[Rfam]
RNA: Small nucleolar RNA SNORA23
RNA sequence: AGUGAACGAUGUGCAUGGUGAUGGUCCAUGUUAUGUGUUGUUGCUGAACUGUGUUUUGCAGUUUAACAGCAGUGCUCACACCACACCUGCAGCCAUAGAACAACUGGGGAUCAUAGUACUGGCCUUUGACUGUCUUUCUUUUGGCAUCUCUGCAUUGGCCAGCCUCCAAACUCUCCAACAUAA
Dot-bracket structure: ............(((.............(((...(((((((.(.(((..(((.....)))..))).).)))))).).))).......)))...............(((((........((((((......((((........))))..........)))))).........))))).......
Numbered sequence: 001a002g003u004g005a006a007c008g009a010u011g012u013g014c015a016u017g018g019u020g021a022u023g024g025u026c027c028a029u030g031u032u033a034u035g036u037g038u039u040g041u042u043g044c045u046g047a048a049c050u051g052u053g054u055u056u057u058g059c060a061g062u063u064u065a066a067c068a069g070c071a072g073u074g075c076u077c078a079c080a081c082c083a084c085a086c087c088u089g090c091a092g093c094c095a096u097a098g099a100a101c102a103a104c105u106g107g108g109g110a111u112c113a114u115a116g117u118a119c120u121g122g123c124c125u126u127u128g129a130c131u132g133u134c135u136u137u138c139u140u141u142u143g144g145c146a147u148c149u150c151u152g153c154a155u156u157g158g159c160c161a162g163c164c165u166c167c168a169a170a171c172u173c174u175c176c177a178a179c180a181u182a183a
Stems, first nucleotide, its partner, number of pairs: 013090003029080003035076001036074006043067001045065003050060003106176005119162006131146004